[Rfam]
RNA sequence: CACCCCCUUUAAUAGCGAGCGGGCCCUCCGUGCGUCACCGCGAGCCGCCCGCCCACACCGGGGGAAAGAGA
Numbered sequence: 001c002a003c004c005c006c007c008u009u010u011a012a013u014a015g016c017g018a019g020c021g022g023g024c025c026c027u028c029c030g031u032g033c034g035u036c037a038c039c040g041c042g043a044g045c046c047g048c049c050c051g052c053c054c055a056c057a058c059c060g061g062g063g064g065a066a067a068g069a070g071a
Stems, first nucleotide, its partner, number of pairs: 004064005015052003019048004
Dot-bracket structure: ...(((((......(((.((((......................)))).))).......))))).......
Notes:
A member of the RNA family "Trypanosomatid snoRNA TB10Cs1H1" from Trypanosoma cruzi, 71 nucleotides long. A search with the family's covariance model found it, with a score of 71 bits. For this family Rfam cites "A genome-wide analysis of C/D and H/ACA-like small nucleolar RNAs in Trypanosoma brucei reveals a trypanosome-specific pattern of rRNA modification" (Liang et al., RNA, 2005). Rfam classes the family as an H/ACA-box small nucleolar RNA.